[Rfam]
RNA: AniS
RNA sequence: AUAAAAACCCUGAAAACUGAUUUAUUUUUUAUUUUCAUUGUUUUAUCUCUUUCCUCUUGAUGUGUGUGUGUUUGGGUGUGGCCGUGUGCCACCCCCUUUUUUU
Numbered sequence: 001a002u003a004a005a006a007a008c009c010c011u012g013a014a015a016a017c018u019g020a021u022u023u024a025u026u027u028u029u030u031a032u033u034u035u036c037a038u039u040g041u042u043u044u045a046u047c048u049c050u051u052u053c054c055u056c057u058u059g060a061u062g063u064g065u066g067u068g069u070g071u072u073u074g075g076g077u078g079u080g081g082c083c084g085u086g087u088g089c090c091a092c093c094c095c096c097u098u099u100u101u102u103u
Stems, first nucleotide, its partner, number of pairs: 002045003006042003011037004018031003074095003078092005